[Rfam]
RNA sequence: AGGGCGGUAUCCGAAAAGCCGAAAGAGUAGGAG
Numbered sequence: 001a002g003g004g005c006g007g008u009a010u011c012c013g014a015a016a017a018g019c020c021g022a023a024a025g026a027g028u029a030g031g032a033g
Base pairs, nucleotide, nucleotide: 003020004019005018010032011031012030
The record is a 33-nucleotide RNA, which matches "DUF805b RNA" in Rfam.